[Rfam]
RNA sequence: CGCCGAGACUGCAAAUAUGCGUGGUCUCACCCAUUCAUCAUUCAGGCAUAUUGCUUACUGGAGAUACAGAUGGCACUGACCGCUGAACAGAAGGCCGAGAUCGUCAAGGAAUUCGGCCGUGGCGAG
Dot-bracket structure: ......((((((........))))))......................(..........((.(..........).)).)...............................................
RNA: Ribosomal S15 leader
Organism: Bisbaumannia pacifica